[Rfam]
Nucleotides: 172
Base pairs, nucleotide, nucleotide: 002074003073005072006071007070008069013064014063015062016061017060018059019058020057021056023054026051027050028049029048030047076099077098079096081094083092085090100138101137102136103135104134106132107131108130109129112126113125114124142167143166
Number, partner (000 for none) and nucleotide at each position: 001000u002074g003073g004000c005072g006071c007070u008069u009000g010000a011000g012000g013064c014063u015062u016061u017060c018059u019058g020057c021056c022000u023054c024000a025000u026051g027050g028049c029048g030047a031000a032000a033000a034000g035000g036000u037000g038000g039000u040000u041000u042000g043000u044000a045000u046000c047030u048029u049028g050027u051026u052000g053000u054023g055000c056021g057020g058019c059018a060017g061016a062015a063014a064013g065000a066000a067000g068000a069008a070007a071006g072005c073003c074002c075000c076099g077098u078000a079096g080000u081094u082000a083092a084000u085090u086000u087000u088000u089000c090085a091000u092083u093000a094081a095000c096079c097000c098077a099076c100138g101137a102136g103135g104134c105000g106132a107131u108130c109129c110000c111000a112126a113125u114124g115000c116000u117000u118000g119000a120000a121000c122000a123000a124114c125113a126112u127000c128000a129109g130108g131107a132106u133000a134104g135103c136102c137101u138100c139000u140000u141000a142167c143166c144000g145000c146000g147000c148000g149000u150000u151000a152000c153000g154000c155000a156000a157000g158000g159000a160000g161000a162000a163000g164000a165000a166143g167142g168000c169000c170000a171000u172000g